[Rfam]
RNA sequence: GGACAAUGACGAUUUCGUGAUAAGGUCUCGUUCGUCGUAAUUGGUCUAUUUUUGACCUUGCCGACCAUACUGUUAUAUCACCACCCAUAUUCUGAGUCU
Numbered sequence: 001g002g003a004c005a006a007u008g009a010c011g012a013u014u015u016c017g018u019g020a021u022a023a024g025g026u027c028u029c030g031u032u033c034g035u036c037g038u039a040a041u042u043g044g045u046c047u048a049u050u051u052u053u054g055a056c057c058u059u060g061c062c063g064a065c066c067a068u069a070c071u072g073u074u075a076u077a078u079c080a081c082c083a084c085c086c087a088u089a090u091u092c093u094g095a096g097u098c099u
Stems, first nucleotide, its partner, number of pairs: 001099004044059001046054001
RNA: Small nucleolar RNA Z43
Organism: Cicer arietinum